[Rfam]
Nucleotides: 135
Stems, first nucleotide, its partner, number of pairs: 011026006028052003034047005098122010
Number, partner (000 for none) and nucleotide at each position: 001000a002000a003000g004000a005000a006000a007000a008000a009000g010000c011026a012025g013024a014023a015022g016021c017000a018000c019000c020000c021016g022015c023014u024013u025012c026011u027000c028052g029051c030050c031000u032000u033000g034047g035046u036045g037044a038043c039000c040000a041000g042000a043038g044037u045036u046035g047034c048000c049000g050030g051029g052028c053000u054000g055000a056000c057000g058000a059000g060000u061000u062000u063000a064000a065000a066000u067000g068000a069000c070000c071000g072000u073000u074000g075000a076000c077000a078000u079000u080000c081000c082000u083000u084000u085000g086000u087000c088000a089000a090000u091000g092000g093000a094000g095000u096000u097000u098122a099121g100120c101119g102118g103117g104116g105115u106114g107113c108000a109000g110000u111000a112000u113107g114106c115105a116104u117103u118102c119101c120100g121099c122098u123000u124000u125000u126000u127000u128000u129000g130000c131000u132000u133000g134000a135000u